[Rfam]
RNA sequence: CCAGCAUGAGAUAAAGUGCUUACAGUGCAGGUAGUGAUCAGAACAGUCUACUGCAGUGUGAGCACUUCUCUCCCACGCUG
Numbered sequence: 001c002c003a004g005c006a007u008g009a010g011a012u013a014a015a016g017u018g019c020u021u022a023c024a025g026u027g028c029a030g031g032u033a034g035u036g037a038u039c040a041g042a043a044c045a046g047u048c049u050a051c052u053g054c055a056g057u058g059u060g061a062g063c064a065c066u067u068c069u070c071u072c073c074c075a076c077g078c079u080g
Base pairs, nucleotide, nucleotide: 005077007075008074010072011071014067015066016065017064018063019062020061021060022059023058024057026055027054028053030052031051032050033049034048
The family of this 80-nucleotide sequence from Oryzias latipes is "mir-17 microRNA precursor family".
Pairs were carried over by alignment from the consensus structure, which was predicted with RNAalifold.
This family represents the microRNA (miRNA) precursor mir-17, family, which includes mir-20, mir-91, and mir-103. miRNAs are transcribed as ~70nt precursors (modelled here) and subsequently processed by the Dicer enzyme to give a ~22nt product. In this case the mature sequence comes from the 3' arm of the precursor. The extents of the hairpin precursors are not generally known and are estimated based on hairpin prediction.
Rfam's curators put it in the seed alignment.
For this family Rfam cites "Identification of novel genes coding for small expressed RNAs" (Lagos-Quintana et al., Science, 2001).
NCBI's taxonomy places the organism under Eukaryota, Teleostei, Euacanthomorphacea, Beloniformes, Oryzias.